[Rfam]
RNA sequence: CCGUGCUAGCCGGGGAGUCAGCGGCACCCUGUACCUGCAAUCCGCUAUAGCAGGGGUGAUGUUCUGUUUCGGAUAAAUCAAUUGCAAAGCUGCCCAGUGUAUGUGGCGUUGAAGUUUUGGUCUUGCGCAAUGAGAACUCAUGAACCGUGUCAGGAGGGGAACCUAGCAGCACUAAGUGAGACCUCUCGUGUGCCGUAAGGUUGCCGGAACUGAGUUAACAGCAUUGGUAACGUUUGCAUUGUUUUUUUCAACACAGAAUGCACGG
Numbered sequence: 001c002c003g004u005g006c007u008a009g010c011c012g013g014g015g016a017g018u019c020a021g022c023g024g025c026a027c028c029c030u031g032u033a034c035c036u037g038c039a040a041u042c043c044g045c046u047a048u049a050g051c052a053g054g055g056g057u058g059a060u061g062u063u064c065u066g067u068u069u070c071g072g073a074u075a076a077a078u079c080a081a082u083u084g085c086a087a088a089g090c091u092g093c094c095c096a097g098u099g100u101a102u103g104u105g106g107c108g109u110u111g112a113a114g115u116u117u118u119g120g121u122c123u124u125g126c127g128c129a130a131u132g133a134g135a136a137c138u139c140a141u142g143a144a145c146c147g148u149g150u151c152a153g154g155a156g157g158g159g160a161a162c163c164u165a166g167c168a169g170c171a172c173u174a175a176g177u178g179a180g181a182c183c184u185c186u187c188g189u190g191u192g193c194c195g196u197a198a199g200g201u202u203g204c205c206g207g208a209a210c211u212g213a214g215u216u217a218a219c220a221g222c223a224u225u226g227g228u229a230a231c232g233u234u235u236g237c238a239u240u241g242u243u244u245u246u247u248u249c250a251a252c253a254c255a256g257a258a259u260g261c262a263c264g265g
Base pairs, nucleotide, nucleotide: 001265002264003263004262005261006260009057010056011055012030013029014028015027017025018024019023034054035053036052037051038050062258063257064256065255066254067253071249072248073247075245077243079241080240081239083238084237085236086235087234091229092228095226096225097224098223099222100221103219104218105216106215107214113211114210115209116208117207118206119205120204121203122199123198124197125196126195127194128190129189131188132187133186134185135184137180138179139178140177141176147172148171149170150169155164156163157162
Dot-bracket structure: ((((((..(((((((.(((...))).))))...(((((...........))))))))....((((((...(((.(.(.(((.(((((...((..((((((..(((((.....(((((((((((((((((.(((((.(((((.....((((....(((....)))....))))...)))))...)))))))...))))))...)))))))))..))).)).)))))).))....)))))))).).).)))...)))))).))))))